[Rfam]
RNA sequence: AGCUUUGUGCAAUGGCAGUAUUGUAGCCAAUGAGGUUUAUCCAAGGCACGAUUAUUGCUAAUUGAAAACUUUUCCCAACACCCUGCCAUGACAACUUGAAUUAUAGUCGGCAUUGGCAAUUUUUGACCGUCUCUACAGAGA
Dot-bracket structure: ...................(((((.(((.....((.....))..))))))))................................((((((.(.(((........))).).))).)))............((((....))))
Numbered sequence: 001a002g003c004u005u006u007g008u009g010c011a012a013u014g015g016c017a018g019u020a021u022u023g024u025a026g027c028c029a030a031u032g033a034g035g036u037u038u039a040u041c042c043a044a045g046g047c048a049c050g051a052u053u054a055u056u057g058c059u060a061a062u063u064g065a066a067a068a069c070u071u072u073u074c075c076c077a078a079c080a081c082c083c084u085g086c087c088a089u090g091a092c093a094a095c096u097u098g099a100a101u102u103a104u105a106g107u108c109g110g111c112a113u114u115g116g117c118a119a120u121u122u123u124u125g126a127c128c129g130u131c132u133c134u135a136c137a138g139a140g141a
Stems, first nucleotide, its partner, number of pairs: 020052005026047003034042002085117003088113003092109001094107003130141004